[Rfam]
Nucleotides: 134
Base pairs, nucleotide, nucleotide: 003132004131005130006129007128009126010125016028017027018026030114031113032103033102034048035047036046037045043101044100052078053077054076055075083099084098085097086096087095105117106116107115
Number, partner (000 for none) and nucleotide at each position: 001000c002000a003132c004131g005130u006129g007128c008000u009126c010125c011000g012000g013000g014000g015000u016028c017027g018026g019000u020000g021000a022000a023000a024000u025000u026018c027017c028016g029000a030114g031113c032103c033102g034048g035047c036046g037045g038000u039000g040000a041000u042000a043101g044100u045037c046036c047035g048034c049000g050000a051000c052078c053077c054076g055075u056000u057000g058000u059000c060000c061000u062000c063000g064000c065000u066000c067000g068000c069000g070000a071000g072000u073000u074000c075055a076054c077053g078052g079000u080000g081000g082000a083099u084098c085097c086096g087095g088000u089000g090000a091000a092000a093000g094000u095087c096086c097085g098084g099083a100044a101043c102033c103032g104000a105117c106116g107115g108000u109000g110000a111000a112000a113031g114030u115107c116106c117105g118000g119000a120000u121000g122000g123000g124000a125010g126009g127000c128007g129006c130005a131004c132003g133000u134000g